[Rfam]
RNA: DUF3800-IX RNA
Organism: Sphingobium herbicidovorans
RNA sequence: CUCUUCCGCGCCGAACUGUCACCGGACGGUGCGCGUUCCAGCCAAUCGGUUGGAUAGGCCGGAAGAGCGCA
Numbered sequence: 001c002u003c004u005u006c007c008g009c010g011c012c013g014a015a016c017u018g019u020c021a022c023c024g025g026a027c028g029g030u031g032c033g034c035g036u037u038c039c040a041g042c043c044a045a046u047c048g049g050u051u052g053g054a055u056a057g058g059c060c061g062g063a064a065g066a067g068c069g070c071a
Stems, first nucleotide, its partner, number of pairs: 001067008010059003017035003020031004037054007